[Rfam]
Shown here is a 117-nucleotide RNA from Schinkia azotoformans, a member of the family "epsC RNA".
It is annotated as a cis-regulatory element.
The family has 30 seed sequences and 450 matches in Rfam 15.1.
RNA sequence: CGGUAAUGUCUCCUCGCCGUUAUCAAUGGGGGCACUCGGUCAUGCUGUGGGUCAAUAGAAUCAGUACCUUAGACGCGGGUCGUCGCUAGUGUGAUGUGAGGCGGGGUUAGAUGCCCU
Numbered sequence: 001c002g003g004u005a006a007u008g009u010c011u012c013c014u015c016g017c018c019g020u021u022a023u024c025a026a027u028g029g030g031g032g033c034a035c036u037c038g039g040u041c042a043u044g045c046u047g048u049g050g051g052u053c054a055a056u057a058g059a060a061u062c063a064g065u066a067c068c069u070u071a072g073a074c075g076c077g078g079g080u081c082g083u084c085g086c087u088a089g090u091g092u093g094a095u096g097u098g099a100g101g102c103g104g105g106g107u108u109a110g111a112u113g114c115c116c117u
Base pairs, nucleotide, nucleotide: 001019002018003017004016007034008033009032010031011030012029013028035100036099037098038097039095040094041093042092043091044090045089046088049069050068051067052066072084073083074082075081103117104116105115106114107113
Dot-bracket structure: [[[[..(((((((..]]]]........)))))))((((((((((((..((((.............))))..((((.....))))...)))))))).))))..(((((.....)))))